Rfam assigns this 112-nucleotide RNA sequence from Macrococcoides bohemicum to the family "SAM riboswitch aptamer (S box leader)". Its family is annotated with regulation of gene expression in the Gene Ontology. The match comes from Rfam's covariance-model search (67 bits). Lineage of the source: Bacteria > Bacillota > Bacilli > Staphylococcaceae > Macrococcoides. Rfam's curators write: The SAM riboswitch is found upstream of a number of genes which code for proteins involved in methionine or cysteine biosynthesis in Gram-positive bacteria.
RNA sequence: CUCUUAUCCAGAGUGGUGGAGGGACAUGGACCCUUUGAAGCCCAGCAACCCUUAACUUCGUUGUUAAGUAAGGUGCCAAACCGUUUGCAGACAGCUGUCUGAACGAUAAGAG
Numbered sequence: 001c002u003c004u005u006a007u008c009c010a011g012a013g014u015g016g017u018g019g020a021g022g023g024a025c026a027u028g029g030a031c032c033c034u035u036u037g038a039a040g041c042c043c044a045g046c047a048a049c050c051c052u053u054a055a056c057u058u059c060g061u062u063g064u065u066a067a068g069u070a071a072g073g074u075g076c077c078a079a080a081c082c083g084u085u086u087g088c089a090g091a092c093a094g095c096u097g098u099c100u101g102a103a104c105g106a107u108a109a110g111a112g
Stems, first nucleotide, its partner, number of pairs: 001112008013043001015042003021033003027087003045076003049073002051068004088101005